[Rfam]
RNA sequence: UCCCCUGCUGUCAGUAACAAGGAUUCAACCUGUUGUUAAGUUGCCACCCAACAGGGGAUCUAUGUUACUGGGGUCAGGAGA
Numbered sequence: 001u002c003c004c005c006u007g008c009u010g011u012c013a014g015u016a017a018c019a020a021g022g023a024u025u026c027a028a029c030c031u032g033u034u035g036u037u038a039a040g041u042u043g044c045c046a047c048c049c050a051a052c053a054g055g056g057g058a059u060c061u062a063u064g065u066u067a068c069u070g071g072g073g074u075c076a077g078g079a080g081a
Stems, first nucleotide, its partner, number of pairs: 011071009021061006029055007

The family of this 81-nucleotide RNA sequence from Scleropages formosus is "mir-459 microRNA precursor family". Taxonomically the source falls in Scleropages (Eukaryota, Deuterostomia, Vertebrata, Neopterygii). Gene Ontology terms of the family: miRNA-mediated post-transcriptional gene silencing and RISC complex.